[Rfam]
RNA sequence: CCGGGACCCGGGACAGACCUGCUGAUUGCGGGACAGACCGCAAUCAGCAGGUCUGUCCCGGGUCCCGGGU
Numbered sequence: 001c002c003g004g005g006a007c008c009c010g011g012g013a014c015a016g017a018c019c020u021g022c023u024g025a026u027u028g029c030g031g032g033a034c035a036g037a038c039c040g041c042a043a044u045c046a047g048c049a050g051g052u053c054u055g056u057c058c059c060g061g062g063u064c065c066c067g068g069g070u
Stems, first nucleotide, its partner, number of pairs: 001068014016053006024045003
The record is a 70-nucleotide RNA from Aquarana catesbeiana, which matches "mir-3017 microRNA precursor family" in Rfam. For this family Rfam cites "Bioinformatic prediction, deep sequencing of microRNAs and expression analysis during phenotypic plasticity in the pea aphid, Acyrthosiphon pisum" (Legeai et al., BMC Genomics, 2010). The family has 2 seed sequences and 58 matches in Rfam 15.1. Pairs were carried over by alignment from the consensus structure, which was predicted with RNAalifold.